[Rfam]
RNA sequence: AAAAGGAGCAAUAAUCCCCUUCUUGUUUUAUCAAGAGGGCGGCAUUGCUCCUUUUUUA
Numbered sequence: 001a002a003a004a005g006g007a008g009c010a011a012u013a014a015u016c017c018c019c020u021u022c023u024u025g026u027u028u029u030a031u032c033a034a035g036a037g038g039g040c041g042g043c044a045u046u047g048c049u050c051c052u053u054u055u056u057u058a
Stems, first nucleotide, its partner, number of pairs: 002054011015041001020037006

This 58-nucleotide sequence from Triosteum pinnatifidum belongs to the Rfam family "Plastid-psbA-3 3UTR RNA". The sequence is in the family's curated seed alignment. Plastid psbA-3 is a non-coding RNA (ncRNA) present in plastids. It was identified in inverted repeat sequences in the 3 prime untranslate region (3UTR) of photosystem II quinone-binding protein (psbA). Rfam classes the family as a cis-regulatory element. On this family, see Richter et al., Plant Commun 2023: "Retrograde signaling in plants: A critical review focusing on the GUN pathway and beyond".